Rfam assigns this 98-nucleotide sequence to the family "wcaG RNA". It is annotated as a cis-regulatory element.
[Rfam]
RNA sequence: AGAUCCCCGUAGGAUAAGGGUUAAGCCUACUGGUGCGGAUGGGAUAACUCCCGCCUGGUUUCCAAUUUCCAGUAAAAGAAUUGGUGGCGAGCCUGCAA
Number, nucleotide and partner (000 for none) at each position: 001a000002g000003a000004u000005c000006c000007c000008c000009g030010u029011a028012g027013g026014a000015u024016a000017a000018g000019g000020g000021u000022u000023a000024a015025g000026c013027c012028u011029a010030c009031u000032g000033g000034u000035g000036c000037g000038g000039a000040u053041g052042g051043g050044a049045u000046a000047a000048c000049u044050c043051c042052c041053g040054c000055c072056u071057g070058g069059u000060u000061u000062c084063c083064a082065a081066u080067u079068u000069c058070c057071a056072g055073u000074a000075a000076a000077a000078g000079a067080a066081u065082u064083g063084g062085u000086g000087g000088c000089g000090a000091g000092c000093c000094u000095g000096c000097a000098a000